[Rfam]
RNA sequence: GCGGUCUGAAAAUCAUUCGGGGUCUGCUGUGGCCCCGAGUGAGAUAACGGCGCCCAUAGCAUCGUGAACAUUAAGCUUAUUGCCCAUGGCUGUGUGUGGGCAAUGAAACCCAUGUUCCCAUAAGC
Numbered sequence: 001g002c003g004g005u006c007u008g009a010a011a012a013u014c015a016u017u018c019g020g021g022g023u024c025u026g027c028u029g030u031g032g033c034c035c036c037g038a039g040u041g042a043g044a045u046a047a048c049g050g051c052g053c054c055c056a057u058a059g060c061a062u063c064g065u066g067a068a069c070a071u072u073a074a075g076c077u078u079a080u081u082g083c084c085c086a087u088g089g090c091u092g093u094g095u096g097u098g099g100g101c102a103a104u105g106a107a108a109c110c111c112a113u114g115u116u117c118c119c120a121u122a123a124g125c
Stems, first nucleotide, its partner, number of pairs: 006050003010045001013042004021034004066118001067116005077106005085096003
Dot-bracket structure: .....(((.(..((((....((((......))))....))))..)..)))...............((((((.....(((((...(((......))).....))))).....))))).).......
Source information:
Rfam assigns this 125-nucleotide RNA from Oenanthe oenanthe to the family "Small nucleolar RNA ACA64". The match comes from Rfam's covariance-model search (76 bits).